[Rfam]
RNA sequence: GCCUUGGAACAAUGUUCUCCUUACGAAUCGUGUCAGGUUCGGAAGAAAGCAGCACUAAGUAUGUGAGGGCAUGUGUUCCAAGUUACG
Numbered sequence: 001g002c003c004u005u006g007g008a009a010c011a012a013u014g015u016u017c018u019c020c021u022u023a024c025g026a027a028u029c030g031u032g033u034c035a036g037g038u039u040c041g042g043a044a045g046a047a048a049g050c051a052g053c054a055c056u057a058a059g060u061a062u063g064u065g066a067g068g069g070c071a072u073g074u075g076u077u078c079c080a081a082g083u084u085a086c087g
Base pairs, nucleotide, nucleotide: 001086004081005080006079007078008077009076010073012072013071014070015069016068017067020063022061023060024059030055031054032053033052038047039046040045
RNA: Bacterial small signal recognition particle RNA
Organism: Ligilactobacillus equi